A member of the RNA family "Group I catalytic intron" from Lentibacillus amyloliquefaciens, 313 nucleotides long. On this family, see Cech, Annu Rev Biochem 1990: "Self-splicing of group I introns".

[Rfam]
RNA sequence: CCGGGUAUUUUCUUUAUUGACAAUGCCAACGAAAUGACGAAUGCGCAAGCUUAUGGUGACCAGGUCGUUGCAACAAAUCCGUGUGGUAAAGUGGCACAGUUUGCCUCACGUAAAAAAUCGGAUGAAUUGCUGGGAAGCUAAGGGGUUAAACCUAGGCCAAUCAGCAGCCAAGCUAGCCAGGGAUGGUUAGAAGGUUCAGAGACUAGUCAUAUACCACUGGAACAGUGAUGAAAUGGCCACGAGCGUCCGAUGCUUCAGACGGUUAAAAUGUUUGAAGUAAAGAUAUAGUCCGACACUCCAUUGAAAAAUGGAG
Numbered sequence: 001c002c003g004g005g006u007a008u009u010u011u012c013u014u015u016a017u018u019g020a021c022a023a024u025g026c027c028a029a030c031g032a033a034a035u036g037a038c039g040a041a042u043g044c045g046c047a048a049g050c051u052u053a054u055g056g057u058g059a060c061c062a063g064g065u066c067g068u069u070g071c072a073a074c075a076a077a078u079c080c081g082u083g084u085g086g087u088a089a090a091g092u093g094g095c096a097c098a099g100u101u102u103g104c105c106u107c108a109c110g111u112a113a114a115a116a117a118u119c120g121g122a123u124g125a126a127u128u129g130c131u132g133g134g135a136a137g138c139u140a141a142g143g144g145g146u147u148a149a150a151c152c153u154a155g156g157c158c159a160a161u162c163a164g165c166a167g168c169c170a171a172g173c174u175a176g177c178c179a180g181g182g183a184u185g186g187u188u189a190g191a192a193g194g195u196u197c198a199g200a201g202a203c204u205a206g207u208c209a210u211a212u213a214c215c216a217c218u219g220g221a222a223c224a225g226u227g228a229u230g231a232a233a234u235g236g237c238c239a240c241g242a243g244c245g246u247c248c249g250a251u252g253c254u255u256c257a258g259a260c261g262g263u264u265a266a267a268a269u270g271u272u273u274g275a276a277g278u279a280a281a282g283a284u285a286u287a288g289u290c291c292g293a294c295a296c297u298c299c300a301u302u303g304a305a306a307a308a309u310g311g312a313g
Base pairs, nucleotide, nucleotide: 005026006025007024008023009022011020012019117251118250119249120248121247123245124244128166129165130164131163132162133161137157138156139155141153167195168194199291201290202289203288204287205286253277254276255275256274257273258272259271260270261269298311299310300309301308302307

Background: It scores 97 bits against the family's covariance model. Lineage of the source: Bacteria > Bacillati > Bacilli > Bacillaceae > Lentibacillus. Pairs were carried over by alignment from the consensus structure, which is taken from published work.